[Rfam]
RNA sequence: GUUCCCAAUGAUGCCUAUGUUGACCAUGCUAAUGCUGAAAUGCUUUGAUGAUGAUUUGUUGUACGUUAUGAGGGAACA
Numbered sequence: 001g002u003u004c005c006c007a008a009u010g011a012u013g014c015c016u017a018u019g020u021u022g023a024c025c026a027u028g029c030u031a032a033u034g035c036u037g038a039a040a041u042g043c044u045u046u047g048a049u050g051a052u053g054a055u056u057u058g059u060u061g062u063a064c065g066u067u068a069u070g071a072g073g074g075a076a077c078a
Stems, first nucleotide, its partner, number of pairs: 001077005
Dot-bracket structure: (((((...................................................................))))).
This 78-nucleotide RNA sequence from Ensete ventricosum belongs to the Rfam family "Small nucleolar RNA snoR53Y". On this family, see Brown et al., RNA 2001: "Multiple snoRNA gene clusters from Arabidopsis". Its Rfam clan is "snoR53 clan". The family's RNA type in Rfam is C/D-box small nucleolar RNA. The organism belongs to Ensete, within Eukaryota.